The record is a 36-nucleotide sequence, which matches "XIST RNA A repeat" in Rfam. By type it is a small RNA. The base pairs follow the family's consensus structure, which was predicted with CMfinder. On this family, see Duszczyk et al., RNA 2011: "The Xist RNA A-repeat comprises a novel AUCG tetraloop fold and a platform for multimerization".
[Rfam]
RNA sequence: UGGCCCAUCGGGGCAAUGGAUACCUGCCUCUUUUUU
Number, nucleotide and partner (000 for none) at each position: 001u000002g000003g014004c013005c012006c011007a000008u000009c000010g000011g006012g005013g004014c003015a000016a000017u026018g025019g024020a000021u000022a000023c000024c019025u018026g017027c000028c000029u000030c000031u000032u000033u000034u000035u000036u000